[Rfam]
RNA sequence: AGGGAAAAAGGCAAACCUGCGGUGACGUGGGGACGCAAAAUUACGGGUCUUAUAUAUAAAGAUAGCCGAAUUGCCAAAC
Numbered sequence: 001a002g003g004g005a006a007a008a009a010g011g012c013a014a015a016c017c018u019g020c021g022g023u024g025a026c027g028u029g030g031g032g033a034c035g036c037a038a039a040a041u042u043a044c045g046g047g048u049c050u051u052a053u054a055u056a057u058a059a060a061g062a063u064a065g066c067c068g069a070a071u072u073g074c075c076a077a078a079c
Base pairs, nucleotide, nucleotide: 004075011036012035016031017030018029019028020027021026034065039072040071041070042069044068045067046066047063048062049061
RNA: c-di-GMP-I-GGC riboswitch aptamer